[Rfam]
RNA sequence: AAAAUUAAAGUAAAUUCCCUUCAUAUAUCCUUGAUAAUAAGGUUCAAGAGUUUCUACCGGGCCGCCGUAAAUGGCCUGACUAUGAAGGCAGAACCAUUGGAU
Numbered sequence: 001a002a003a004a005u006u007a008a009a010g011u012a013a014a015u016u017c018c019c020u021u022c023a024u025a026u027a028u029c030c031u032u033g034a035u036a037a038u039a040a041g042g043u044u045c046a047a048g049a050g051u052u053u054c055u056a057c058c059g060g061g062c063c064g065c066c067g068u069a070a071a072u073g074g075c076c077u078g079a080c081u082a083u084g085a086a087g088g089c090a091g092a093a094c095c096a097u098u099g100g101a102u
Base pairs, nucleotide, nucleotide: 018088019087020086021085022084023083024082025081030048031047032046033045034044058078059077060076061075062074063073064072